[Rfam]
RNA: Plant small nucleolar RNA U3
RNA sequence: ACGACCUUACUUGAACAGGAACUGUUCUAUAGGCUCGUACCUCCUUAUCCUUAAGCACUAAGGAGACAGGAUUUCAAGUCUGGUUGAUGAAUGGUAGCUGUGUGAUCAGAGCGUGAUUAUUGGCUGAAUGGUUCGGUAUUGAGCCAGCUUAGCUGCAGAGGAUCGUUCUCGGCUGAAACCUUGGUUGAGAUGGUCACACGGUUGUCUGACAGACU
Numbered sequence: 001a002c003g004a005c006c007u008u009a010c011u012u013g014a015a016c017a018g019g020a021a022c023u024g025u026u027c028u029a030u031a032g033g034c035u036c037g038u039a040c041c042u043c044c045u046u047a048u049c050c051u052u053a054a055g056c057a058c059u060a061a062g063g064a065g066a067c068a069g070g071a072u073u074u075c076a077a078g079u080c081u082g083g084u085u086g087a088u089g090a091a092u093g094g095u096a097g098c099u100g101u102g103u104g105a106u107c108a109g110a111g112c113g114u115g116a117u118u119a120u121u122g123g124c125u126g127a128a129u130g131g132u133u134c135g136g137u138a139u140u141g142a143g144c145c146a147g148c149u150u151a152g153c154u155g156c157a158g159a160g161g162a163u164c165g166u167u168c169u170c171g172g173c174u175g176a177a178a179c180c181u182u183g184g185u186u187g188a189g190a191u192g193g194u195c196a197c198a199c200g201g202u203u204g205u206c207u208g209a210c211a212g213a214c215u
Stems, first nucleotide, its partner, number of pairs: 001038002003035001005033003013027006043069001046066001048064006078214005097202012110167004121155007129146007169188008